[Rfam]
Rfam assigns this 67-nucleotide RNA sequence from Bombyx mori to the family "mir-2774 microRNA precursor family".
The match comes from Rfam's covariance-model search (63 bits).
Gene Ontology terms of the family: miRNA-mediated post-transcriptional gene silencing and RISC complex.
Taxonomically the source falls in Bombyx (Eukaryota, Opisthokonta, Insecta, Ditrysia).
The base pairs follow the family's consensus structure, which was predicted with RNAalifold.
RNA sequence: ACAACUCUUGAACCGUAGGUCUACUGAGGAAUAUCACACUCUCGGUAGAAGAUCUUCCCUUUGUCAU
Numbered sequence: 001a002c003a004a005c006u007c008u009u010g011a012a013c014c015g016u017a018g019g020u021c022u023a024c025u026g027a028g029g030a031a032u033a034u035c036a037c038a039c040u041c042u043c044g045g046u047a048g049a050a051g052a053u054c055u056u057c058c059c060u061u062u063g064u065c066a067u
Stems, first nucleotide, its partner, number of pairs: 004064002010058001012056001015053002020049010